[Rfam]
RNA sequence: GUCUCUGAUGAUGAUCAUAAAAUAUACUUUCUGAGUUGUCCAUGAGGAAAGUAAAUGGAGACCUGAACUGAAGAGGC
Numbered sequence: 001g002u003c004u005c006u007g008a009u010g011a012u013g014a015u016c017a018u019a020a021a022a023u024a025u026a027c028u029u030u031c032u033g034a035g036u037u038g039u040c041c042a043u044g045a046g047g048a049a050a051g052u053a054a055a056u057g058g059a060g061a062c063c064u065g066a067a068c069u070g071a072a073g074a075g076g077c
Stems, first nucleotide, its partner, number of pairs: 003075004
Dot-bracket structure: ..((((.................................................................))))..
RNA: Small nucleolar RNA Z159/U59
Organism: Phaseolus vulgaris